[Rfam]
RNA sequence: AUAGGGGAAGCCGAAAACCUUUCAGAGUAGGUG
Dot-bracket structure: ..(((....[[[.....))).........]]].
Shown here is a 33-nucleotide sequence, a member of the family "DUF805b RNA". Rfam classes the family as a cis-regulatory element. Clan: DUF805 clan.